[Rfam]
RNA: Bacterial small subunit ribosomal RNA, nucleotides 1 to 568
Organism: Winmispira thermophila
RNA sequence: AUGAUGGAGAGUUUGAUCCUGGCUCAGAACGAACGCUGGCGGCGCGUCUUAGGCAUGCAAGUCGAGCGGUAGGGUGGUGCUUGCACCACCUGAGAGCGGCGGACGGGUGAGUAACACGUAGGUGACCUAUCCUCAGGUUGGGGAUAGCCCGUGGAAACACGGGGUAAUACCGGAUGGCCUCUUAUGGCUGUGGCUAUAGGAGGAAAGGCCCGAUAAGGGUCGCCUGAGGAGGGGCCUGCGGCCCAUUAGCUAGUUGGUAGGGUAACGGCCUACCAAGGCGACGAUGGGUAGGGGGUCUGAGAGGAUGGCCCCCCACACUGGGACUGAGACACGGCCCAGACUCCUACGGGAGGCAGCAGCCAAGAAUCUUCCGCAAUGGGCGAAAGCCUGACGGAGCGACGCCGCGUGGGGGAAGAAGGCCGGAAGGUUGUAAACCCCUUUUCCCAGGGAAGAAUAAGGGCGGGAGGUAAUGCCCGUCUGAUGACGUUACCUGGGGAAUAAGCCCCGGCUAACUACGUGCCAGCAGCCGCGGUAAUACGUAGGGGGCGAGCGUUGUUCGGAAUUACUG
Numbered sequence: 001a002u003g004a005u006g007g008a009g010a011g012u013u014u015g016a017u018c019c020u021g022g023c024u025c026a027g028a029a030c031g032a033a034c035g036c037u038g039g040c041g042g043c044g045c046g047u048c049u050u051a052g053g054c055a056u057g058c059a060a061g062u063c064g065a066g067c068g069g070u071a072g073g074g075u076g077g078u079g080c081u082u083g084c085a086c087c088a089c090c091u092g093a094g095a096g097c098g099g100c101g102g103a104c105g106g107g108u109g110a111g112u113a114a115c116a117c118g119u120a121g122g123u124g125a126c127c128u129a130u131c132c133u134c135a136g137g138u139u140g141g142g143g144a145u146a147g148c149c150c151g152u153g154g155a156a157a158c159a160c161g162g163g164g165u166a167a168u169a170c171c172g173g174a175u176g177g178c179c180u181c182u183u184a185u186g187g188c189u190g191u192g193g194c195u196a197u198a199g200g201a202g203g204a205a206a207g208g209c210c211c212g213a214u215a216a217g218g219g220u221c222g223c224c225u226g227a228g229g230a231g232g233g234g235c236c237u238g239c240g241g242c243c244c245a246u247u248a249g250c251u252a253g254u255u256g257g258u259a260g261g262g263u264a265a266c267g268g269c270c271u272a273c274c275a276a277g278g279c280g281a282c283g284a285u286g287g288g289u290a291g292g293g294g295g296u297c298u299g300a301g302a303g304g305a306u307g308g309c310c311c312c313c314c315a316c317a318c319u320g321g322g323a324c325u326g327a328g329a330c331a332c333g334g335c336c337c338a339g340a341c342u343c344c345u346a347c348g349g350g351a352g353g354c355a356g357c358a359g360c361c362a363a364g365a366a367u368c369u370u371c372c373g374c375a376a377u378g379g380g381c382g383a384a385a386g387c388c389u390g391a392c393g394g395a396g397c398g399a400c401g402c403c404g405c406g407u408g409g410g411g412g413a414a415g416a417a418g419g420c421c422g423g424a425a426g427g428u429u430g431u432a433a434a435c436c437c438c439u440u441u442u443c444c445c446a447g448g449g450a451a452g453a454a455u456a457a458g459g460g461c462g463g464g465a466g467g468u469a470a471u472g473c474c475c476g477u478c479u480g481a482u483g484a485c486g487u488u489a490c491c492u493g494g495g496g497a498a499u500a501a502g503c504c505c506c507g508g509c510u511a512a513c514u515a516c517g518u519g520c521c522a523g524c525a526g527c528c529g530c531g532g533u534a535a536u537a538c539g540u541a542g543g544g545g546g547c548g549a550g551c552g553u554u555g556u557u558c559g560g561a562a563u564u565a566c567u568g
Stems, first nucleotide, its partner, number of pairs: 009025005027558004032554006039405006045398002047363001052361003056358003061100003066097002070092001073090007107316003117240007126233002131229007139173001141171002148163006179202010207221005242288003249279003254276008291313004295306004318339005341352004369395001371394003377390005408438004418429004443495006452485001458479006502547005513542005523530002